[Rfam]
A member of the RNA family "U7 small nuclear RNA" from Polypterus senegalus, 59 nucleotides long. From the family's description: Animal histone pre-mRNAs are spliced by a different mechanism than nuclear pre-mRNAs and self-splicing introns. The organism belongs to Polypterus, within Eukaryota. Rfam 15.1 lists 10,439 matches to the family in 569 species. The match comes from Rfam's covariance-model search (45 bits).

RNA sequence: UAAAUUACAUACUCUUUAAGUAUUUGUCCAGCAGGUUUUCUCAUCAAGAGAAAGCCUAU
Dot-bracket structure: .................................(((((((((.....)))))))))...